[Rfam]
RNA: tRNA
RNA sequence: GCUUGAGUAGCAAAGCGGUUAAUGCUUGAGAUUUAGGUUCUCACAUCAAAGGUUCAAGCCCUUUCUCUAGUU
Dot-bracket structure: (((.(((..(((..........))).(((((.......)))))....(((((.......)))))))).))).
Numbered sequence: 001g002c003u004u005g006a007g008u009a010g011c012a013a014a015g016c017g018g019u020u021a022a023u024g025c026u027u028g029a030g031a032u033u034u035a036g037g038u039u040c041u042c043a044c045a046u047c048a049a050a051g052g053u054u055c056a057a058g059c060c061c062u063u064u065c066u067c068u069a070g071u072u
Stems, first nucleotide, its partner, number of pairs: 001071003005067003010025003027043005048064005